[Rfam]
RNA: chrB-a RNA
Organism: Sphingomonas adhaesiva
RNA sequence: GGCAUGGGGAACGCGAUCUCCCCACGAGGCGUCAGGCUGAAGUAUCGUGUCCCUAGCUACCAGAGGACGCGUCAUG
Dot-bracket structure: ....((((((........))))))......................((((((............))))))......
Numbered sequence: 001g002g003c004a005u006g007g008g009g010a011a012c013g014c015g016a017u018c019u020c021c022c023c024a025c026g027a028g029g030c031g032u033c034a035g036g037c038u039g040a041a042g043u044a045u046c047g048u049g050u051c052c053c054u055a056g057c058u059a060c061c062a063g064a065g066g067a068c069g070c071g072u073c074a075u076g
Stems, first nucleotide, its partner, number of pairs: 005024006047070006